[Rfam]
RNA sequence: GAGUGUUACAGCUCUUUUAGAAUUUGUCUAGCAGGUUUUCUGGUCCCCACCAGACCCCC
Numbered sequence: 001g002a003g004u005g006u007u008a009c010a011g012c013u014c015u016u017u018u019a020g021a022a023u024u025u026g027u028c029u030a031g032c033a034g035g036u037u038u039u040c041u042g043g044u045c046c047c048c049a050c051c052a053g054a055c056c057c058c059c
Stems, first nucleotide, its partner, number of pairs: 034056002039054006

Annotation
The record is a 59-nucleotide RNA sequence from Propithecus coquereli, which matches "U7 small nuclear RNA" in Rfam. Rfam's curators write: Animal histone pre-mRNAs are spliced by a different mechanism than nuclear pre-mRNAs and self-splicing introns.